Source information:
Rfam assigns this 126-nucleotide RNA sequence from Hibiscus syriacus to the family "mir-172 microRNA precursor family". mir-172 has been experimentally verified in Arabidopsis thaliana. For this family Rfam cites "Computational Identification of Plant MicroRNAs and Their Targets, Including a Stress-Induced miRNA" (Jones-Rhoades and Bartel, Mol Cell, 2004). Gene Ontology terms of the family: RISC complex and miRNA-mediated post-transcriptional gene silencing.
RNA sequence: UUGUUUGCAGGUGUAGCAUCUUCAAGAUUCACAUGGAAAUGAACGACGGUGAUUAUAUUAUACUAUUAACUUUAUGCCAAAGUUCUUUGAAUGUGAGAAUCUUGAUGAUGCUGCAUCGGCAAUAAU
Numbered sequence: 001u002u003g004u005u006u007g008c009a010g011g012u013g014u015a016g017c018a019u020c021u022u023c024a025a026g027a028u029u030c031a032c033a034u035g036g037a038a039a040u041g042a043a044c045g046a047c048g049g050u051g052a053u054u055a056u057a058u059u060a061u062a063c064u065a066u067u068a069a070c071u072u073u074a075u076g077c078c079a080a081a082g083u084u085c086u087u088u089g090a091a092u093g094u095g096a097g098a099a100u101c102u103u104g105a106u107g108a109u110g111c112u113g114c115a116u117c118g119g120c121a122a123u124a125a126u
Stems, first nucleotide, its partner, number of pairs: 010117011022105009032095004